[Rfam]
RNA sequence: ACGAUUCUUCGGGGCAGGGUGAAAAUCCCGACCGGUGGUAACAAGUGAGUGCUUGAAGUCCACGACCCGCGCGAGCGGUUGAUCCAGUGCGAAUCUGGAACCGACAGUCAGAGUCUGGAGGGGAGAAGGAUCUG
Numbered sequence: 001a002c003g004a005u006u007c008u009u010c011g012g013g014g015c016a017g018g019g020u021g022a023a024a025a026u027c028c029c030g031a032c033c034g035g036u037g038g039u040a041a042c043a044a045g046u047g048a049g050u051g052c053u054u055g056a057a058g059u060c061c062a063c064g065a066c067c068c069g070c071g072c073g074a075g076c077g078g079u080u081g082a083u084c085c086a087g088u089g090c091g092a093a094u095c096u097g098g099a100a101c102c103g104a105c106a107g108u109c110a111g112a113g114u115c116u117g118g119a120g121g122g123g124a125g126a127a128g129g130a131u132c133u134g
Stems, first nucleotide, its partner, number of pairs: 003132008017029003031114002033103002035063004058101002067078002083099005105117003

Shown here is a 134-nucleotide sequence from Allobacillus sp. SKP2-8, a member of the family "FMN riboswitch aptamer (RFN element)". The match comes from Rfam's covariance-model search (109 bits). The base pairs follow the family's consensus structure, which is taken from published work. The source organism's lineage runs through Bacteria, Bacillati, Bacillota, Caryophanales and Allobacillus.